[Rfam]
RNA sequence: GGGUGCUCACACAAUUACGUGUGGCAGGUUGUGCGACGGUCGGGCCGCCUCG
Dot-bracket structure: ....((.(((((......)))))))........(((.(((......))))))
Numbered sequence: 001g002g003g004u005g006c007u008c009a010c011a012c013a014a015u016u017a018c019g020u021g022u023g024g025c026a027g028g029u030u031g032u033g034c035g036a037c038g039g040u041c042g043g044g045c046c047g048c049c050u051c052g
Stems, first nucleotide, its partner, number of pairs: 005025002008023005034052003038049003